[Rfam]
RNA sequence: CGUUUCCACAGGGGGAGCUGUACGCUGAGAGUGAACAUUGGCCUUUCUAGGUAAAUGUUCAGACCCUUUGAACCUGGUCUAGUUAAUGCUAGCGUAGGGAUUGUGGAUUAAGACGGUU
Number, nucleotide and partner (000 for none) at each position: 001c000002g000003u000004u000005u000006c106007c105008a104009c103010a102011g067012g066013g065014g064015g000016a000017g025018c024019u000020g000021u000022a000023c000024g018025c017026u000027g000028a000029g000030a000031g000032u061033g060034a059035a058036c057037a056038u055039u054040g000041g000042c000043c000044u000045u000046u000047c000048u000049a000050g000051g000052u000053a000054a039055a038056u037057g036058u035059u034060c033061a032062g000063a000064c014065c013066c012067u011068u000069u000070g000071a000072a000073c098074c097075u096076g095077g000078u000079c092080u091081a090082g089083u000084u000085a000086a000087u000088g000089c082090u081091a080092g079093c000094g000095u076096a075097g074098g073099g000100a000101u000102u010103g009104u008105g007106g006107a000108u000109u000110a000111a000112g000113a000114c000115g000116g000117u000118u000
A member of the RNA family "TPP riboswitch aptamer (THI element)" from Fervidibacillus halotolerans, 118 nucleotides long. Rfam 15.1 lists 16,130 matches to the family in 8,693 species. A search with the family's covariance model found it, with a score of 66 bits.